[Rfam]
RNA sequence: GAACGUUUGUGGCAAAACUAUGGAAACAUAGUGACGCAAAGCUAAAGGGGCUAAAGCAAUUCUAUUGAUUGCUAUGCCAGCCAGUUGCCGUU
Number, nucleotide and partner (000 for none) at each position: 001g000002a000003a000004c000005g000006u000007u000008u000009g000010u000011g000012g037013c036014a000015a000016a000017a032018c031019u030020a029021u028022g027023g000024a000025a000026a000027c022028a021029u020030a019031g018032u017033g000034a000035c000036g013037c012038a000039a000040a086041g085042c084043u083044a000045a000046a000047g082048g081049g078050g077051c076052u000053a000054a000055a000056g072057c071058a070059a069060u068061u067062c000063u000064a000065u000066u000067g061068a060069u059070u058071g057072c056073u000074a000075u000076g051077c050078c049079a000080g000081c048082c047083a043084g042085u041086u040087g000088c000089c000090g000091u000092u000